[Rfam]
The record is a 120-nucleotide RNA from Abrus precatorius, which matches "MIR390 microRNA precursor family" in Rfam.
A reference for the family is Gustafson et al. (2005), "ASRP: the Arabidopsis Small RNA Project Database", Nucleic Acids Res.
Its family is annotated with RISC complex and miRNA-mediated post-transcriptional gene silencing in the Gene Ontology.

RNA sequence: UUGAAGAAUCUGUAAAGCUCAGGAGGGAUAGCGCCAUGAACACUCUUUCUCUUGCUUUGCUCUUCACAUGCCCUUUUAGUUCUCUGGCGCUGUCUAUUCUGAGUUUCAUGGUUUCUUCAU
Numbered sequence: 001u002u003g004a005a006g007a008a009u010c011u012g013u014a015a016a017g018c019u020c021a022g023g024a025g026g027g028a029u030a031g032c033g034c035c036a037u038g039a040a041c042a043c044u045c046u047u048u049c050u051c052u053u054g055c056u057u058u059g060c061u062c063u064u065c066a067c068a069u070g071c072c073c074u075u076u077u078a079g080u081u082c083u084c085u086g087g088c089g090c091u092g093u094c095u096a097u098u099c100u101g102a103g104u105u106u107c108a109u110g111g112u113u114u115c116u117u118c119a120u
Stems, first nucleotide, its partner, number of pairs: 010111001016105009026095010